[Rfam]
RNA sequence: CGAGGCUUAUGAUGAUUAAGAAUUGCCGACAUUGUCAGAUCUUUACUUUGAUGACAAUAAAAGUGACAAAUCUGAGGCCUUA
Numbered sequence: 001c002g003a004g005g006c007u008u009a010u011g012a013u014g015a016u017u018a019a020g021a022a023u024u025g026c027c028g029a030c031a032u033u034g035u036c037a038g039a040u041c042u043u044u045a046c047u048u049u050g051a052u053g054a055c056a057a058u059a060a061a062a063g064u065g066a067c068a069a070a071u072c073u074g075a076g077g078c079c080u081u082a
Stems, first nucleotide, its partner, number of pairs: 002081001004079004